[Rfam]
RNA: Vertebrate telomerase RNA
Organism: Salvator merianae
RNA sequence: UUGAGGAGGAUGUGUGGAGGUUUUCUUCUGGCUUUUCAAUCUAACCCUAAAUAGCCGUUAGCGGCUGUUGUGGCAUUCGCUGUUUUACUCGUUGACUUUCAGCGAAUUCAAAGAACUAAAAAACGCCAUCGCUACCAGGGGGUCUCCUCCUCCUCCUGCCGGCCGCGCGCUUCCUGGCUCUCUUCCUUUGGAGGCUCACGACCCAUGGGGCCGCCGGCUGUCCCUUACGAAGAGGCCGCGGUCAGCUUGGCCCGAGCCGCUGCUGCCGCGAAGGGUUCGGCCCUGUCAGCCUCGGGGCGGCCGGCGUGGCUGAAUGGGGGUGAGAUGCCUCUGGGCAGGGCGGGCGCGAGAGGAAAAACGGGCGGCGCUCCCGCCCGGGAGCUGGGUCCGCGCACCCCUGAGCCGUGGGGCGAGCGAAGGACGUCGCCCGGACACGC
Numbered sequence: 001u002u003g004a005g006g007a008g009g010a011u012g013u014g015u016g017g018a019g020g021u022u023u024u025c026u027u028c029u030g031g032c033u034u035u036u037c038a039a040u041c042u043a044a045c046c047c048u049a050a051a052u053a054g055c056c057g058u059u060a061g062c063g064g065c066u067g068u069u070g071u072g073g074c075a076u077u078c079g080c081u082g083u084u085u086u087a088c089u090c091g092u093u094g095a096c097u098u099u100c101a102g103c104g105a106a107u108u109c110a111a112a113g114a115a116c117u118a119a120a121a122a123a124c125g126c127c128a129u130c131g132c133u134a135c136c137a138g139g140g141g142g143u144c145u146c147c148u149c150c151u152c153c154u155c156c157u158g159c160c161g162g163c164c165g166c167g168c169g170c171u172u173c174c175u176g177g178c179u180c181u182c183u184u185c186c187u188u189u190g191g192a193g194g195c196u197c198a199c200g201a202c203c204c205a206u207g208g209g210g211c212c213g214c215c216g217g218c219u220g221u222c223c224c225u226u227a228c229g230a231a232g233a234g235g236c237c238g239c240g241g242u243c244a245g246c247u248u249g250g251c252c253c254g255a256g257c258c259g260c261u262g263c264u265g266c267c268g269c270g271a272a273g274g275g276u277u278c279g280g281c282c283c284u285g286u287c288a289g290c291c292u293c294g295g296g297g298c299g300g301c302c303g304g305c306g307u308g309g310c311u312g313a314a315u316g317g318g319g320g321u322g323a324g325a326u327g328c329c330u331c332u333g334g335g336c337a338g339g340g341c342g343g344g345c346g347c348g349a350g351a352g353g354a355a356a357a358a359c360g361g362g363c364g365g366c367g368c369u370c371c372c373g374c375c376c377g378g379g380a381g382c383u384g385g386g387u388c389c390g391c392g393c394a395c396c397c398c399u400g401a402g403c404c405g406u407g408g409g410g411c412g413a414g415c416g417a418a419g420g421a422c423g424u425c426g427c428c429c430g431g432a433c434a435c436g437c
Base pairs, nucleotide, nucleotide: 005156006155007154008153009152010151012149016147017146018145019144020143022141023140024139025138026137075107076106077105078104079103080102081101082100091130093128094127096125097123098122099121160346161345163343164342165341196323197322198321199320202317203316212306213305214304215303216302217301218300222296223295224294237270238269239268240267241266243265244264245263246262249258250257251256272284273283274282275281360429361428362427363426364425365424366423367422369420370419389416390415391414395410396409397408398407